[Rfam]
RNA sequence: UAGGAAAAAUGGCAAACCUGCUCGAAAGACAGGGACGCAAAGCCACGGGUCUAAUGCCGCAAGGCUAUGAUCGCCGGGUCACCCUU
Number, nucleotide and partner (000 for none) at each position: 001u000002a000003g000004g000005a000006a000007a000008a000009a000010u000011g000012g038013c037014a000015a000016a000017c033018c032019u031020g030021c000022u029023c028024g000025a000026a000027a000028g023029a022030c020031a019032g018033g017034g000035a000036c000037g013038c012039a000040a000041a000042g079043c078044c077045a000046c076047g075048g074049g071050u070051c069052u000053a000054a000055u000056g065057c064058c063059g000060c000061a000062a000063g058064g057065c056066u000067a000068u000069g051070a050071u049072c000073g000074c048075c047076g046077g044078g043079u042080c000081a000082c000083c000084c000085u000086u000
The record is an 86-nucleotide RNA sequence from Cohnella fermenti, which matches "c-di-GMP-I riboswitch aptamer" in Rfam. Gene Ontology term of the family: cyclic-di-GMP binding. The family's consensus secondary structure is taken from published work.